A member of the RNA family "BsrF" from Schinkia azotoformans, 112 nucleotides long. Taxonomically the source falls in Schinkia azotoformans (Bacteria, Bacillati, Bacillota, Caryophanales). By type it is a small RNA. The base pairs follow the family's consensus structure, which was predicted with WAR. On this family, see Saito et al., Gene 2008: "Novel small RNA-encoding genes in the intergenic regions of Bacillus subtilis".
RNA sequence: GCGAUGAGCUGAAUUGUGUAAGUCGAUUGACACGCCCUAUAAGGGAAUGCAUGAAUGUGGCAUGCAGUCAGUCGCCUCAAUGCGAGAAAGGGCACUUUUAUUAAAGUGCCCU
Numbered sequence: 001g002c003g004a005u006g007a008g009c010u011g012a013a014u015u016g017u018g019u020a021a022g023u024c025g026a027u028u029g030a031c032a033c034g035c036c037c038u039a040u041a042a043g044g045g046a047a048u049g050c051a052u053g054a055a056u057g058u059g060g061c062a063u064g065c066a067g068u069c070a071g072u073c074g075c076c077u078c079a080a081u082g083c084g085a086g087a088a089a090g091g092g093c094a095c096u097u098u099u100a101u102u103a104a105a106g107u108g109c110c111c112u
Stems, first nucleotide, its partner, number of pairs: 014080003018076001024074008035044002048066002051063003089112009